Annotation: Shown here is a 132-nucleotide RNA sequence from Cebus imitator, a member of the family "Small nucleolar RNA SNORA71". Rfam 15.1 lists 1,805 matches to the family in 606 species. The family's consensus secondary structure was predicted with PFOLD. Lineage of the source: Eukaryota > Tetrapoda > Boreoeutheria > Euarchontoglires > Cebus. The family's RNA type in Rfam is H/ACA-box small nucleolar RNA. Rfam describes the family as follows. The members of this family belong to the H/ACA class of snoRNAs which bind a number of proteins (including dyskerin, Gar1p and Nop10p) to form snoRNP complexes. This class of snoRNAs are thought to guide the sites of modification of uridines to pseudouridines by forming direct base pairing interactions with substrate RNAs. This family includes U71 (SNORA71), ACA39 (SNORA39) and ACA60 (SNORA60). U71 and ACA60 are predicted to guide the pseudouridylation of U406 and U1004 in 18S rRNA respectively.
[Rfam]
RNA sequence: GUCUGUAUUAGAAAGUGAUCAUCAGCUGCCUGAGACUUGGUCAUCAAUAGCACAGGGUGGGGAACUGCACAGAGCCCUUCUGUGUUUGGAGGGUCCAUCUCCAUCCGUGGAAACCCUUGUGCUUUUUUCACA
Number, nucleotide and partner (000 for none) at each position: 001g000002u056003c055004u054005g053006u052007a000008u050009u049010a000011g000012a000013a000014a000015g044016u043017g042018a041019u040020c039021a038022u000023c000024a000025g000026c034027u000028g000029c000030c000031u000032g000033a000034g026035a000036c000037u000038u021039g020040g019041u018042c017043a016044u015045c000046a000047a000048u000049a009050g008051c000052a006053c005054a004055g003056g002057g000058u000059g000060g000061g000062g000063a000064a000065c000066u000067g129068c000069a128070c000071a126072g125073a123074g122075c121076c000077c000078u000079u000080c000081u000082g000083u000084g114085u113086u112087u111088g000089g000090a108091g000092g106093g105094u000095c000096c000097a000098u000099c000100u000101c000102c000103a000104u000105c093106c092107g000108u090109g000110g000111a087112a086113a085114c084115c000116c000117u000118u000119g000120u000121g075122c074123u073124u000125u072126u071127u000128u069129c067130a000131c000132a000